[Rfam]
Record summary
A member of the RNA family "Small nucleolar RNA SNORA5" from Pantherophis guttatus, 133 nucleotides long. Clan: SNORA5 clan. Taxonomically the source falls in Pantherophis (Eukaryota, Euteleostomi, Sarcopterygii, Sauropsida). Rfam links the family to the GO terms RNA processing and nucleolus. Rfam's curators write: ACA5 is a member of the H/ACA class of snoRNA that guide the sites of modification of uridines to pseudouridines.
RNA sequence: UGCAGUUGUGUCAAAUUCAUUGCCUACCUUUUCGUGGUGGGCAAUGGUCCAAACAGCUGCCAAAGUAAUACCUGUAGUUCAUGGGCCUCGGAAUUCCUUGUGGGUUCUGGGGAUAGUUUUUCUGCAGACACCU
Numbered sequence: 001u002g003c004a005g006u007u008g009u010g011u012c013a014a015a016u017u018c019a020u021u022g023c024c025u026a027c028c029u030u031u032u033c034g035u036g037g038u039g040g041g042c043a044a045u046g047g048u049c050c051a052a053a054c055a056g057c058u059g060c061c062a063a064a065g066u067a068a069u070a071c072c073u074g075u076a077g078u079u080c081a082u083g084g085g086c087c088u089c090g091g092a093a094u095u096c097c098u099u100g101u102g103g104g105u106u107c108u109g110g111g112g113a114u115a116g117u118u119u120u121u122c123u124g125c126a127g128a129c130a131c132c133u
Base pairs, nucleotide, nucleotide: 002060003059004058005057018046019045020044021043022042023041024040025039026038027037028036074125075124076123077122086112087111089109090108091107